[Rfam]
RNA sequence: GGUCCAUCCCGAGCGGCCGAGAGAUCUGGCUCAAUGACGCCGCAGCAACCCGGAACCUGCCGGGUGCUACCGCCAGGUCCGAUGGGAG
Numbered sequence: 001g002g003u004c005c006a007u008c009c010c011g012a013g014c015g016g017c018c019g020a021g022a023g024a025u026c027u028g029g030c031u032c033a034a035u036g037a038c039g040c041c042g043c044a045g046c047a048a049c050c051c052g053g054a055a056c057c058u059g060c061c062g063g064g065u066g067c068u069a070c071c072g073c074c075a076g077g078u079c080c081g082a083u084g085g086g087a088g
Base pairs, nucleotide, nucleotide: 003086004085005084006083007082008081013043014042015041016040017039021032022031023030026076027075028074029073044068045067046066047065049064050063051062052061053060072080
RNA: SAM riboswitch aptamer (S box leader)